[Rfam]
RNA sequence: CCUCUGGAAAGCAGGCGCACGGCGAAGCCAUGCGUCUCACCGAAGGAGUAAUCCGUGCCCGUUCCACCGGGUGCGGUGAAAUCUCUCAGGUUCCGGUGACAGAGG
Numbered sequence: 001c002c003u004c005u006g007g008a009a010a011g012c013a014g015g016c017g018c019a020c021g022g023c024g025a026a027g028c029c030a031u032g033c034g035u036c037u038c039a040c041c042g043a044a045g046g047a048g049u050a051a052u053c054c055g056u057g058c059c060c061g062u063u064c065c066a067c068c069g070g071g072u073g074c075g076g077u078g079a080a081a082u083c084u085c086u087c088a089g090g091u092u093c094c095g096g097u098g099a100c101a102g103a104g105g
Stems, first nucleotide, its partner, number of pairs: 001105006013037007039091003042087002046085003052079002
Dot-bracket structure: ((((((......(((((((...........))))))).(((((..(((...((........................))...))))).)))........))))))